[Rfam]
RNA sequence: AAUAUUUGACGCCGUUGACUUUUUAGCACAUGUUUGACCGUUCGUCUUAUUCAAAAAAUUUAAGUAAUUAUUAAUUCUUUUCCUAUCAUUUGAUUCAUUGUUAAAUAUAUUUUCAAGUAGGCAUAUAAUUUUAUAUAUUUCACAAAAGUUUUUGAAUAAGACGAACGGUCAAACAUGUGCUAAAAAGUCAACGAUGUUAAA
Numbered sequence: 001a002a003u004a005u006u007u008g009a010c011g012c013c014g015u016u017g018a019c020u021u022u023u024u025a026g027c028a029c030a031u032g033u034u035u036g037a038c039c040g041u042u043c044g045u046c047u048u049a050u051u052c053a054a055a056a057a058a059u060u061u062a063a064g065u066a067a068u069u070a071u072u073a074a075u076u077c078u079u080u081u082c083c084u085a086u087c088a089u090u091u092g093a094u095u096c097a098u099u100g101u102u103a104a105a106u107a108u109a110u111u112u113u114c115a116a117g118u119a120g121g122c123a124u125a126u127a128a129u130u131u132u133a134u135a136u137a138u139u140u141c142a143c144a145a146a147a148g149u150u151u152u153u154g155a156a157u158a159a160g161a162c163g164a165a166c167g168g169u170c171a172a173a174c175a176u177g178u179g180c181u182a183a184a185a186a187g188u189c190a191a192c193g194a195u196g197u198u199a200a201a
Stems, first nucleotide, its partner, number of pairs: 027179024

Record summary: The record is a 201-nucleotide RNA from Oryza glumipatula, which matches "MIR812 microRNA precursor family" in Rfam. Its family is annotated with RISC complex and miRNA-mediated post-transcriptional gene silencing in the Gene Ontology. The match comes from Rfam's covariance-model search (85 bits). The organism belongs to Oryza, within Eukaryota.